RNA: Bacterial small signal recognition particle RNA
RNA sequence: GUCGGUCCCCCGCGUGGCGAUAUCUUGCCUAACUCCCCCAGGGUCGGAAGGCAGCAAGGGUAAGCGAGCUCUUUCGGGUACGCGGGGGGCUCCUUCU
Numbered sequence: 001g002u003c004g005g006u007c008c009c010c011c012g013c014g015u016g017g018c019g020a021u022a023u024c025u026u027g028c029c030u031a032a033c034u035c036c037c038c039c040a041g042g043g044u045c046g047g048a049a050g051g052c053a054g055c056a057a058g059g060g061u062a063a064g065c066g067a068g069c070u071c072u073u074u075c076g077g078g079u080a081c082g083c084g085g086g087g088g089g090c091u092c093c094u095u096c097u
Base pairs, nucleotide, nucleotide: 004091005090006089007088008087009086010085011084012083013082014081015078018076019075020074022072024068025067026066027065028064030062035060036059037058043052044051045050